[Rfam]
RNA sequence: GUUGGUUACGGUGACAUGUGUCCUAAAACUUACGUGGGAAUGUUUGUUGGUGCACUGUGUGCAUUGGCGGGAGUCCUUACAAUCGCCCUGCCGGUGCCCGUGAUCGUUAGCAAC
Number, nucleotide and partner (000 for none) at each position: 001g114002u113003u000004g111005g000006u000007u000008a107009c106010g105011g104012u000013g000014a101015c100016a000017u000018g097019u096020g095021u094022c000023c000024u000025a000026a000027a000028a000029c000030u000031u000032a000033c000034g000035u000036g000037g077038g076039a000040a074041u000042g000043u000044u000045u000046g000047u000048u000049g000050g062051u061052g000053c000054a000055c000056u000057g000058u000059g000060u000061g051062c050063a000064u000065u000066g000067g000068c000069g000070g000071g000072a000073g000074u040075c000076c038077u037078u000079a000080c000081a000082a000083u000084c000085g000086c000087c000088c000089u000090g000091c000092c000093g000094g021095u020096g019097c018098c000099c000100g015101u014102g000103a000104u011105c010106g009107u008108u000109a000110g000111c004112a000113a002114c001

This 114-nucleotide sequence from Cotesia congregata belongs to the Rfam family "Potassium channel RNA editing signal".
The family's consensus secondary structure is taken from published work.
It scores 92 bits against the family's covariance model.
Taxonomically the source falls in Cotesia (Eukaryota, Metazoa, Pancrustacea, Neoptera).